[Rfam]
RNA sequence: GUGUUGAACUAGGGGUGUCCGGUUAGUCCGGACUGAGAGGGAGAAGCGUUUAAGUUUUCCUAACUCUUUGGACCUGAUCUGGCUCGUACCAGCGUGGGGAAGUUUCGAUUCAUUAUA
Number, nucleotide and partner (000 for none) at each position: 001g000002u000003g000004u000005u000006g105007a104008a103009c102010u101011a067012g066013g065014g064015g000016u000017g033018u032019c031020c030021g029022g000023u000024u000025a000026g000027u000028c000029c021030g020031g019032a018033c017034u000035g000036a000037g000038a000039g000040g060041g059042a058043g057044a056045a000046g000047c000048g000049u000050u000051u000052a000053a000054g000055u000056u044057u043058u042059c041060c040061u000062a000063a000064c014065u013066c012067u011068u000069u000070g000071g000072a000073c098074c097075u096076g095077a000078u000079c092080u091081g090082g089083c000084u000085c000086g000087u000088a000089c082090c081091a080092g079093c000094g000095u076096g075097g074098g073099g000100a000101a010102g009103u008104u007105u006106c000107g000108a000109u000110u000111c000112a000113u000114u000115a000116u000117a000
Shown here is a 117-nucleotide RNA sequence from Bacillus sp. OxB-1, a member of the family "TPP riboswitch aptamer (THI element)". A reference for the family is Welz and Breaker (2007), "Ligand binding and gene control characteristics of tandem riboswitches in Bacillus anthracis", RNA. The match comes from Rfam's covariance-model search (70 bits). Pairs were carried over by alignment from the consensus structure, which is taken from published work.